[Rfam]
RNA sequence: UAAUAUAAAUAGAAAGAGCCGAGCGGGAACUCGACUCUUAUGUAGAACCGUUUCAGACGGUGGCUACCGACUUUAUUGAUUUAUAA
Numbered sequence: 001u002a003a004u005a006u007a008a009a010u011a012g013a014a015a016g017a018g019c020c021g022a023g024c025g026g027g028a029a030c031u032c033g034a035c036u037c038u039u040a041u042g043u044a045g046a047a048c049c050g051u052u053u054c055a056g057a058c059g060g061u062g063g064c065u066a067c068c069g070a071c072u073u074u075a076u077u078g079a080u081u082u083a084u085a086a
Stems, first nucleotide, its partner, number of pairs: 020033004047061006
RNA: RNA anti-toxin A